[Rfam]
RNA sequence: AAUGAAGUUUGAAGUAACGAUUCAAACAUAUAGCCGCCAUUGGUAUCAUAGAAUGUAGUCGGAGUACCGGAUGACCUUCCCGUAAGUCUAUGAGUAAAUCCCGAAA
Dot-bracket structure: .[....(((((((.......)))))))............(.(((.(((((((.......(((......((....)).].)))....)))))))....).)).)...